A member of the RNA family "Small nucleolar RNA snR60/Z15/Z230/Z193/J17" from Chara braunii, 90 nucleotides long. Pairs were carried over by alignment from the consensus structure. A reference for the family is Lowe and Eddy (1999), "A computational screen for methylation guide snoRNAs in yeast", Science. A search with the family's covariance model found it, with a score of 55 bits. The source organism's lineage runs through Eukaryota, Viridiplantae, Streptophytina, Charales and Chara.
RNA sequence: GUAUGGUGAAUGAUGUUCUAAUAGUUCAUCUGAGCUUUGUAGGCUAUGAAAUCAUCACCUAUAGUCUUUCGCUCCUAUCUGAUGCCAUUG
Numbered sequence: 001g002u003a004u005g006g007u008g009a010a011u012g013a014u015g016u017u018c019u020a021a022u023a024g025u026u027c028a029u030c031u032g033a034g035c036u037u038u039g040u041a042g043g044c045u046a047u048g049a050a051a052u053c054a055u056c057a058c059c060u061a062u063a064g065u066c067u068u069u070c071g072c073u074c075c076u077a078u079c080u081g082a083u084g085c086c087a088u089u090g
Stems, first nucleotide, its partner, number of pairs: 004087005